[Rfam]
RNA sequence: UAAAAUGCCAUGAUGGAGAUAAGUAAGCAGUACAUCUUUACAGGGAGGAAGCGCCUUAGAUUGAGAGCGAUUCUACUGAAACAGACUGCCGAAAUUCCCUCCGGAGCAGUUCCUUGAACCGUUUCGCCGCGUUAUAUUCAUAUGAAGACGUAGCGAGAUAUGAUUAGAGGAUACCGGUUCUCGAGCCGUUAUUUCGAUUUGAGUGAGAAAUAUGGGCCUUCUAGGGAAGGCAUGUUUUUCUAACAAGGGUGGUACCACGGUCUUUUCGUCCCUUUC
Numbered sequence: 001u002a003a004a005a006u007g008c009c010a011u012g013a014u015g016g017a018g019a020u021a022a023g024u025a026a027g028c029a030g031u032a033c034a035u036c037u038u039u040a041c042a043g044g045g046a047g048g049a050a051g052c053g054c055c056u057u058a059g060a061u062u063g064a065g066a067g068c069g070a071u072u073c074u075a076c077u078g079a080a081a082c083a084g085a086c087u088g089c090c091g092a093a094a095u096u097c098c099c100u101c102c103g104g105a106g107c108a109g110u111u112c113c114u115u116g117a118a119c120c121g122u123u124u125c126g127c128c129g130c131g132u133u134a135u136a137u138u139c140a141u142a143u144g145a146a147g148a149c150g151u152a153g154c155g156a157g158a159u160a161u162g163a164u165u166a167g168a169g170g171a172u173a174c175c176g177g178u179u180c181u182c183g184a185g186c187c188g189u190u191a192u193u194u195c196g197a198u199u200u201g202a203g204u205g206a207g208a209a210a211u212a213u214g215g216g217c218c219u220u221c222u223a224g225g226g227a228a229g230g231c232a233u234g235u236u237u238u239u240c241u242a243a244c245a246a247g248g249g250u251g252g253u254a255c256c257a258c259g260g261u262c263u264u265u266u267c268g269u270c271c272c273u274u275u276c
Stems, first nucleotide, its partner, number of pairs: 007107002015102004027089005038075001047074004052069003111171005175188003206241005212235003246273004257269004
Dot-bracket structure: ......((......((((........(((((......(........((((.(((............))).))))).........))))).........))))...))...(((((...................................................)))))...(((........))).................(((((.(((..................))).)))))....((((.......((((.....))))))))...
T-box leader: a 276-nucleotide RNA from Paenibacillus pini. It is annotated as a cis-regulatory leader.